This 166-nucleotide RNA sequence from Burkholderiales bacterium PBB3 belongs to the Rfam family "Group II catalytic intron D1-D4-3". The pairing is the family consensus, mapped onto this sequence. The organism belongs to Burkholderiales, within Bacteria. Group II introns are found in rRNA, tRNA and mRNA of organelles in fungi, plants and protists, and also in mRNA in bacteria. Rfam links the family to the GO term Group II intron splicing. The match comes from Rfam's covariance-model search (112 bits).
Nucleotides: 166
Base pairs, nucleotide, nucleotide: 001016002015005012006011028166029165030164036158040153041152042151043150044149045148047145048144049143050142062141063140064139065138066137067136073133074132075131078128079127080126081125082124085113086112087111088110091106092105093104094103
Number, partner (000 for none) and nucleotide at each position: 001016g002015g003000a004000a005012g006011g007000g008000c009000g010000a011006c012005c013000g014000a015002c016001c017000g018000c019000g020000u021000g022000a023000a024000g025000g026000a027000a028166g029165g030164c031000u032000a033000u034000g035000g036158g037000a038000a039000a040153a041152c042151c043150g044149c045148g046000a047145g048144c049143u050142g051000a052000u053000g054000g055000a056000c057000a058000a059000g060000a061000a062141c063140c064139g065138g066137a067136u068000a069000g070000a071000a072000g073133g074132c075131c076000g077000a078128c079127a080126c081125g082124g083000c084000g085113c086112g087111a088110c089000g090000a091106g092105c093104u094103g095000g096000c097000a098000c099000a100000a101000c102000a103094c104093a105092g106091c107000g108000a109000a110088g111087u112086c113085g114000a115000u116000u117000g118000g119000u120000a121000u122000g123000c124082c125081u126080g127079u128078g129000g130000a131075g132074g133073u134000a135000a136067a137066u138065c139064c140063g141062g142050c143049g144048g145047c146000a147000g148045u149044g150043c151042g152041g153040u154000g155000g156000a157000g158036c159000a160000a161000c162000g163000u164030g165029c166028c